[Rfam]
RNA sequence: UUCUUAUCAAGAGAGGCGGAGGGACUGGCCCUAUGAUGCCCGGCAACCUGAAUAUAGAAUAUUCAUUGGUGCUAAUUCCAGCAGGGGAAACCUGAUAGAUGAGAU
Numbered sequence: 001u002u003c004u005u006a007u008c009a010a011g012a013g014a015g016g017c018g019g020a021g022g023g024a025c026u027g028g029c030c031c032u033a034u035g036a037u038g039c040c041c042g043g044c045a046a047c048c049u050g051a052a053u054a055u056a057g058a059a060u061a062u063u064c065a066u067u068g069g070u071g072c073u074a075a076u077u078c079c080a081g082c083a084g085g086g087g088a089a090a091c092c093u094g095a096u097a098g099a100u101g102a103g104a105u
Stems, first nucleotide, its partner, number of pairs: 002104007013041001015040003021031003025081004042073004047069002049065004077097001082094004

Overview
Shown here is a 105-nucleotide RNA sequence from Clostridium tyrobutyricum, a member of the family "SAM riboswitch aptamer (S box leader)". Rfam 15.1 lists 9,625 matches to the family in 4,158 species. For this family Rfam cites "Comparative genomics of the methionine metabolism in Gram-positive bacteria: a variety of regulatory systems" (Rodionov et al., Nucleic Acids Res, 2004). The source organism's lineage runs through Bacteria, Bacillota, Eubacteriales, Clostridiaceae and Clostridium tyrobutyricum.